[Rfam]
Nucleotides: 085
Stems, first nucleotide, its partner, number of pairs: 012037002018031005040079004047075002049071003056065003
Number, partner (000 for none) and nucleotide at each position: 001000u002000g003000g004000a005000c006000g007000a008000a009000a010000a011000g012037g013036c014000a015000a016000a017000u018031u019030c020029a021028u022027u023000g024000a025000a026000a027022a028021a029020u030019g031018a032000u033000g034000g035000c036013g037012c038000a039000a040079a041078a042077c043076u044000a045000a046000a047075g048074g049071g050070g051069c052000u053000a054000a055000g056065g057064u058063c059000u060000u061000g062000g063058g064057a065056c066000u067000a068000c069051g070050c071049c072000a073000g074048c075047c076043a077042g078041u079040u080000a081000u082000c083000g084000a085000a
Rfam assigns this 85-nucleotide RNA from Falsibacillus albus to the family "c-di-GMP-I riboswitch aptamer". The organism belongs to Falsibacillus, within Bacteria. It scores 70 bits against the family's covariance model.